The family of this 100-nucleotide sequence from Methanosarcina acetivorans is "Pyrrolysine insertion sequence mtbB". Pairs were carried over by alignment from the consensus structure, which was predicted with WAR. The source organism's lineage runs through Archaea, Methanobacteriati, Methanobacteriota, Methanosarcinales and Methanosarcina acetivorans. On this family, see Theil Have et al., BMC Bioinformatics 2013: "Effects of using coding potential, sequence conservation and mRNA structure conservation for predicting pyrroly-sine containing genes".
RNA sequence: UAGAUCGGGGUCGGCGACCCUCUGGGUAUGCCGAUUUCCCACAUAAUGGCCUCAGGUAUGACCGGGAUCAGAGCAGCCGGCGAUCUUGUUGCAAGGAUGC
Numbered sequence: 001u002a003g004a005u006c007g008g009g010g011u012c013g014g015c016g017a018c019c020c021u022c023u024g025g026g027u028a029u030g031c032c033g034a035u036u037u038c039c040c041a042c043a044u045a046a047u048g049g050c051c052u053c054a055g056g057u058a059u060g061a062c063c064g065g066g067a068u069c070a071g072a073g074c075a076g077c078c079g080g081c082g083a084u085c086u087u088g089u090u091g092c093a094a095g096g097a098u099g100c
Base pairs, nucleotide, nucleotide: 007038010035011034012033013032014031015030016029017027018026019025073092074091075090076089077088079086080085